Bacterial RNase P class A: a 402-nucleotide RNA from Stratiformator vulcanicus. Its family is annotated with ribonuclease P activity, tRNA processing and dimeric ribonuclease P complex in the Gene Ontology.

RNA sequence: GGAGUGGGCCGAGCGGUCGCGACCGAAUUCGCUUCGUGCGAAUUUGAUCGAGGAAAGUCCGGGCUCCACAGGACAGGGUGGUGGGUAACGCCCACCGUCCGUGAGGACCGGGAAAGUGCCACAGAAAGCAAACCGCCGAACGGCGCGACGCUUCGCAAGAGGUUCGCGCGCGUGGUAAGGGUGAAAGGGUGCGGUAAGAGCGCACCGCGGCGCGGGUGACCGGGCCGGCAAGGUAAACCCCACCCGGAGCAAGACCGAGCAGGGGGGAAGGGGGCUUCGGCCCGCUGCGGGUUUGUUCGGCCCGUCACUACCCCCGGGUAGGUUGCUGGAGGCGGCGGGCAACCGUCGUCCGAGAGAAAUGACCGCUCUCGACAGAACCCGGCUUACAGGCCCACUCCGCAU
Number, nucleotide and partner (000 for none) at each position: 001g398002g397003a396004g395005u394006g393007g392008g391009c390010c389011g387012a367013g366014c365015g364016g363017u362018c361019g000020c050021g049022a048023c000024c046025g045026a044027a043028u042029u041030c040031g039032c000033u000034u000035c000036g000037u000038g000039c031040g030041a029042a028043u027044u026045u025046g024047a000048u022049c021050g020051a000052g000053g000054a000055a385056a384057g383058u000059c382060c381061g380062g379063g378064c249065u248066c247067c246068a000069c000070a000071g298072g297073a296074c295075a000076g245077g244078g243079u242080g241081g095082u094083g093084g092085g091086u000087a000088a000089c000090g000091c085092c084093c083094a082095c081096c110097g108098u107099c106100c105101g000102u000103g000104a000105g100106g099107a098108c097109c000110g096111g240112g239113a000114a000115a000116g238117u237118g234119c233120c232121a000122c000123a000124g000125a000126a000127a000128g000129c000130a000131a000132a000133c180134c179135g176136c175137c174138g000139a000140a000141c170142g169143g000144c000145g000146c000147g000148a000149c000150g000151c000152u000153u000154c000155g000156c000157a000158a000159g000160a000161g000162g000163u000164u000165c000166g000167c000168g000169c142170g141171c000172g000173u000174g137175g136176u135177a000178a000179g134180g133181g000182u000183g000184a000185a000186a000187g000188g206189g205190u204191g203192c202193g201194g000195u000196a000197a000198g000199a000200g000201c193202g192203c191204a190205c189206c188207g229208c227209g226210g225211c224212g000213c222214g221215g220216g000217u000218g000219a000220c215221c214222g213223g000224g211225c210226c209227g208228g000229c207230a000231a000232g120233g119234u118235a000236a000237a117238c116239c112240c111241c080242a079243c078244c077245c076246g067247g066248a065249g064250c000251a000252a000253g324254a323255c322256c321257g000258a000259g000260c000261a000262g000263g315264g314265g313266g312267g311268a000269a000270g000271g000272g000273g000274g000275c000276u000277u000278c000279g000280g000281c000282c000283c000284g000285c000286u000287g000288c000289g000290g000291g000292u000293u299294u000295g074296u073297u072298c071299g293300g000301c000302c000303c000304g000305u000306c000307a000308c000309u000310a000311c267312c266313c265314c264315c263316g000317g000318g000319u000320a000321g256322g255323u254324u253325g000326c000327u000328g000329g000330a000331g350332g349333c348334g347335g346336c345337g344338g343339g000340c000341a000342a000343c338344c337345g336346u335347c334348g333349u332350c331351c000352g000353a000354g000355a000356g000357a000358a000359a000360u000361g018362a017363c016364c015365g014366c013367u012368c000369u000370c000371g000372a000373c000374a000375g000376a000377a000378c063379c062380c061381g060382g059383c057384u056385u055386a000387c011388a000389g010390g009391c008392c007393c006394a005395c004396u003397c002398c001399g000400c000401a000402u000
About the family: Ribonuclease P (RNase P) is a ubiquitous endoribonuclease, found in archaea, bacteria and eukarya as well as chloroplasts and mitochondria.
A search with the family's covariance model found it, with a score of 298 bits.